[Rfam]
RNA sequence: CCUGCCGAGGGGCGCUGCGAUGGCCGCUUUCCAAGUGAAGCGUGGUCCACCAGGCUCGGCAAUCGACAACGGCGCCCGUAGUGA
Numbered sequence: 001c002c003u004g005c006c007g008a009g010g011g012g013c014g015c016u017g018c019g020a021u022g023g024c025c026g027c028u029u030u031c032c033a034a035g036u037g038a039a040g041c042g043u044g045g046u047c048c049a050c051c052a053g054g055c056u057c058g059g060c061a062a063u064c065g066a067c068a069a070c071g072g073c074g075c076c077c078g079u080a081g082u083g084a
Stems, first nucleotide, its partner, number of pairs: 003061006021049003025045001
Dot-bracket structure: ..((((((............(((.(...................).)))......)))))).......................
RNA: SAH (S-adenosyl-L-homocysteine) riboswitch aptamer
Organism: Solilutibacter silvestris